[Rfam]
RNA sequence: AUUGAAAAUGCGCUUAAUUCCCGGAAUUGAAACCGGGAAACGGGGGAACCGAAUAUUGGGGCGAAUCGGCGUUUCGGAAAUUUGCGUCCGAAAUGCGGUAGGAAACCAUCUUUUCCGAGCCCGUCAGCUAACCUCGUCGGCAAUAGAUGGGCCAUUU
Numbered sequence: 001a002u003u004g005a006a007a008a009u010g011c012g013c014u015u016a017a018u019u020c021c022c023g024g025a026a027u028u029g030a031a032a033c034c035g036g037g038a039a040a041c042g043g044g045g046g047a048a049c050c051g052a053a054u055a056u057u058g059g060g061g062c063g064a065a066u067c068g069g070c071g072u073u074u075c076g077g078a079a080a081u082u083u084g085c086g087u088c089c090g091a092a093a094u095g096c097g098g099u100a101g102g103a104a105a106c107c108a109u110c111u112u113u114u115c116c117g118a119g120c121c122c123g124u125c126a127g128c129u130a131a132c133c134u135c136g137u138c139g140g141c142a143a144u145a146g147a148u149g150g151g152c153c154a155u156u157u
Stems, first nucleotide, its partner, number of pairs: 012141003018039007040137006050058002059122003067098001069096010101116004
Dot-bracket structure: ...........(((...(((((((........)))))))((((((....((.....))(((.....(.((((((((((........)))))))))).)..((((........))))...))).........)))))).)))................
RNA: c-di-AMP riboswitch aptamer (ydaO/yuaA leader)